[Rfam]
RNA sequence: GCAGGUUUGAUGUACAGACCACAGAGCAGUCGAAUAGAGCAGUCCUUCUAAGGUUAUCCAAAGAUACCCCCGUAGUGAACUUUCCCUUUAUCGCUUUAAAUCUGUAGUCCAGACCCCUACGCCGCAAGGCUCACUUAUUUUUUUAAAGGUAAUUCACUAUGUCCGGUAAAAUGACUGGUAUCGUAAAAUGGUUCAACGCUGACAAAGGCUUCGGCUUCAUCACUCCUGACGAUGGCUCUAAAGACGUGUUCGUACACUUCUCUGCUAUCCAGAACGAUGGCUACAAAUCCCUGGACGAAGGUCAGAAAGUAUCCUUCACCAUCGAAAGCGGCGCUAAAGGCCCGGCAGCUGGCAACGUAACUUCUCUGUAAGUUCAAGCCGCUAAGAAUCGAGAAUCCCUGCCUGAUGGCGGGGAUUUUUUU
Numbered sequence: 001g002c003a004g005g006u007u008u009g010a011u012g013u014a015c016a017g018a019c020c021a022c023a024g025a026g027c028a029g030u031c032g033a034a035u036a037g038a039g040c041a042g043u044c045c046u047u048c049u050a051a052g053g054u055u056a057u058c059c060a061a062a063g064a065u066a067c068c069c070c071c072g073u074a075g076u077g078a079a080c081u082u083u084c085c086c087u088u089u090a091u092c093g094c095u096u097u098a099a100a101u102c103u104g105u106a107g108u109c110c111a112g113a114c115c116c117c118u119a120c121g122c123c124g125c126a127a128g129g130c131u132c133a134c135u136u137a138u139u140u141u142u143u144u145a146a147a148g149g150u151a152a153u154u155c156a157c158u159a160u161g162u163c164c165g166g167u168a169a170a171a172u173g174a175c176u177g178g179u180a181u182c183g184u185a186a187a188a189u190g191g192u193u194c195a196a197c198g199c200u201g202a203c204a205a206a207g208g209c210u211u212c213g214g215c216u217u218c219a220u221c222a223c224u225c226c227u228g229a230c231g232a233u234g235g236c237u238c239u240a241a242a243g244a245c246g247u248g249u250u251c252g253u254a255c256a257c258u259u260c261u262c263u264g265c266u267a268u269c270c271a272g273a274a275c276g277a278u279g280g281c282u283a284c285a286a287a288u289c290c291c292u293g294g295a296c297g298a299a300g301g302u303c304a305g306a307a308a309g310u311a312u313c314c315u316u317c318a319c320c321a322u323c324g325a326a327a328g329c330g331g332c333g334c335u336a337a338a339g340g341c342c343c344g345g346c347a348g349c350u351g352g353c354a355a356c357g358u359a360a361c362u363u364c365u366c367u368g369u370a371a372g373u374u375c376a377a378g379c380c381g382c383u384a385a386g387a388a389u390c391g392a393g394a395a396u397c398c399c400u401g402c403c404u405g406a407u408g409g410c411g412g413g414g415a416u417u418u419u420u421u422u
Stems, first nucleotide, its partner, number of pairs: 004020006025227002028224003037218002041216004045207003053203004059198001063194002066192003071161007084149002087146002090143001093109001095107001121130003163178005230324006243251002254312001256310004261306004265301002268295005276289003329344003333341003345369004351362002373386002377383002392419012

The family of this 422-nucleotide RNA sequence from Klebsiella pneumoniae is "cspA thermoregulator". The family's consensus secondary structure is taken from published work. The organism belongs to Klebsiella pneumoniae subsp. pneumoniae, within Bacteria. The family has 15 seed sequences and 2,094 matches in Rfam 15.1. The family's RNA type in Rfam is RNA thermoregulator. On this family, see Giuliodori et al., Mol Cell 2010: "The cspA mRNA is a thermosensor that modulates translation of the cold-shock protein CspA". Rfam's curators put it in the seed alignment. Its family is annotated with regulation of translation and response to temperature stimulus in the Gene Ontology.